[Rfam]
RNA sequence: ACAAAAAAAUCCCCGCGGCAUCACCCGCGGGGUCCUUCUAUUCUUAAUGAUUCAUUAAGGAGAAGGCAAAGGGAGAGGAGAAACCGGAGGAAGAACUUAUGGGGAAACGUAAGUCUUCUCCGCGG
Numbered sequence: 001a002c003a004a005a006a007a008a009a010u011c012c013c014c015g016c017g018g019c020a021u022c023a024c025c026c027g028c029g030g031g032g033u034c035c036u037u038c039u040a041u042u043c044u045u046a047a048u049g050a051u052u053c054a055u056u057a058a059g060g061a062g063a064a065g066g067c068a069a070a071g072g073g074a075g076a077g078g079a080g081a082a083a084c085c086g087g088a089g090g091a092a093g094a095a096c097u098u099a100u101g102g103g104g105a106a107a108c109g110u111a112a113g114u115c116u117u118c119u120c121c122g123c124g125g
Stems, first nucleotide, its partner, number of pairs: 011032008033073005042060006085122004090118004095114005
RNA: ylbH leader
Organism: Bacillus safensis